[Rfam]
RNA sequence: CCAGACAAAGCCAAACCCGGAGUAAUCCGGGGACGGAAAGCUUCGAGUCCGCAACCGGUAAAGGCGACAAACACAUCGAGCUGCGGAUGGUCGGGUUGCCACAG
Numbered sequence: 001c002c003a004g005a006c007a008a009a010g011c012c013a014a015a016c017c018c019g020g021a022g023u024a025a026u027c028c029g030g031g032g033a034c035g036g037a038a039a040g041c042u043u044c045g046a047g048u049c050c051g052c053a054a055c056c057g058g059u060a061a062a063g064g065c066g067a068c069a070a071a072c073a074c075a076u077c078g079a080g081c082u083g084c085g086g087a088u089g090g091u092c093g094g095g096u097u098g099c100c101a102c103a104g
Stems, first nucleotide, its partner, number of pairs: 001104001004100001011036002016031006034090001039097004044093003047088007

Rfam assigns this 104-nucleotide RNA sequence from Desulfoluna spongiiphila to the family "c-di-GMP-I-GGC riboswitch aptamer".
A search with the family's covariance model found it, with a score of 63 bits.
The organism belongs to Desulfoluna, within Bacteria.